Rfam assigns this 84-nucleotide RNA from Trinickia dabaoshanensis to the family "Burkholderia sRNA 25".
Its family is annotated with bacterial biofilm matrix in the Gene Ontology.
Rfam describes the family as follows. Identified by RNA-seq, RACE and Northern blot. Strongly expressed in biofilm.
Lineage of the source: Bacteria > Pseudomonadati > Burkholderiales > Burkholderiaceae > Trinickia.
A search with the family's covariance model found it, with a score of 67 bits.
On this family, see Sass et al., Sci Rep 2017: "Identification of small RNAs abundant in Burkholderia cenocepacia biofilms reveal putative regulators with a potential role in carbon and iron metabolism".
The base pairs follow the family's consensus structure, which was predicted with RNAfold.
RNA sequence: UCUGCUUGCCCAAGCAGACUUUUCAUCAGGAAAAGACGUCUCCAAACCUUUGUCAGCGCGGCUUUCGAGCCGCGUCUUUUUUUC
Numbered sequence: 001u002c003u004g005c006u007u008g009c010c011c012a013a014g015c016a017g018a019c020u021u022u023u024c025a026u027c028a029g030g031a032a033a034a035g036a037c038g039u040c041u042c043c044a045a046a047c048c049u050u051u052g053u054c055a056g057c058g059c060g061g062c063u064u065u066c067g068a069g070c071c072g073c074g075u076c077u078u079u080u081u082u083u084c
Base pairs, nucleotide, nucleotide: 001018002017003016004015005014006013007012019035020034021033022032023031024030056075057074058073059072060071061070062069063068